Shown here is a 47-nucleotide RNA, a member of the family "gut-2 RNA".
By type it is a small RNA.

RNA sequence: AACCGGCAGUGAAUUGGCACUGCUGAAGGCCAAUUGGGGCGAGAAUG
Number, nucleotide and partner (000 for none) at each position: 001a000002a000003c000004c025005g024006g023007c022008a021009g020010u019011g018012a000013a000014u000015u000016g000017g000018c011019a010020c009021u008022g007023c006024u005025g004026a000027a000028g000029g040030c039031c038032a000033a000034u000035u000036g000037g000038g031039g030040c029041g000042a000043g000044a000045a000046u000047g000